[Rfam]
RNA sequence: ACCGGAUAUGAUACUUCAUAGUACAACGAAUUUAGACAGGAAGCAUGUUCAGAUUCGUUGUACUAUGAAGUAUCUUGUCCGGU
Numbered sequence: 001a002c003c004g005g006a007u008a009u010g011a012u013a014c015u016u017c018a019u020a021g022u023a024c025a026a027c028g029a030a031u032u033u034a035g036a037c038a039g040g041a042a043g044c045a046u047g048u049u050c051a052g053a054u055u056c057g058u059u060g061u062a063c064u065a066u067g068a069a070g071u072a073u074c075u076u077g078u079c080c081g082g083u
Stems, first nucleotide, its partner, number of pairs: 001083008010074007018066016035049004

Rfam assigns this 83-nucleotide sequence from Oryza nivara to the family "MIR814 microRNA precursor family". The source organism's lineage runs through Eukaryota, Viridiplantae, Magnoliopsida, Oryzeae and Oryza. The base pairs follow the family's consensus structure, which was predicted with RNAalifold.